[Rfam]
Nucleotides: 045
Stems, first nucleotide, its partner, number of pairs: 001020002004017005032045005
Number, partner (000 for none) and nucleotide at each position: 001020c002019g003000c004017c005016c006015g007014g008013g009000a010000c011000g012000a013008c014007c015006c016005g017004g018000u019002c020001g021000g022000c023000g024000u025000a026000u027000c028000c029000c030000g031000c032045c033044g034043g035042g036041g037000a038000c039000g040000g041036c042035c043034c044033c045032g
Rfam assigns this 45-nucleotide RNA from Gulbenkiania mobilis to the family "Guanidine-II riboswitch aptamer (mini-ykkC)".
NCBI's taxonomy places the organism under Bacteria, Pseudomonadati, Betaproteobacteria, Chromobacteriaceae, Gulbenkiania.
The base pairs follow the family's consensus structure, which is taken from published work.
Rfam describes the family as follows. Simpler in structure and has fewer highly conserved nucleotide positions than the ykkC-yxkD leader.